[Rfam]
RNA sequence: ACGGGAACAGCACGGCCGCAAAUCUGACUCGCCGCGCCUCGCGCGGCUUGGGAUUGCGGAAGUGC
Numbered sequence: 001a002c003g004g005g006a007a008c009a010g011c012a013c014g015g016c017c018g019c020a021a022a023u024c025u026g027a028c029u030c031g032c033c034g035c036g037c038c039u040c041g042c043g044c045g046g047c048u049u050g051g052g053a054u055u056g057c058g059g060a061a062g063u064g065c
Base pairs, nucleotide, nucleotide: 010065011064012063013062016059017058018057019056020055021054024052025051031047032046033045034044035043036042037041